Small nucleolar RNA SNORD110: a 70-nucleotide RNA from Sciurus carolinensis. The match comes from Rfam's covariance-model search (93 bits). Lineage of the source: Eukaryota > Gnathostomata > Eutheria > Sciurini > Sciurus. Clan: SNORD110 clan. By type it is a C/D-box small nucleolar RNA. Gene Ontology terms of the family: RNA processing and nucleolus.
RNA sequence: UUGCAGUGAUGACUUGUGAAUCUGUCAAUCCCCUGAGUAUAAUCAUUGAUGUCUCAAUGUCUCUGAGCAA
Numbered sequence: 001u002u003g004c005a006g007u008g009a010u011g012a013c014u015u016g017u018g019a020a021u022c023u024g025u026c027a028a029u030c031c032c033c034u035g036a037g038u039a040u041a042a043u044c045a046u047u048g049a050u051g052u053c054u055c056a057a058u059g060u061c062u063c064u065g066a067g068c069a070a
Stems, first nucleotide, its partner, number of pairs: 001070004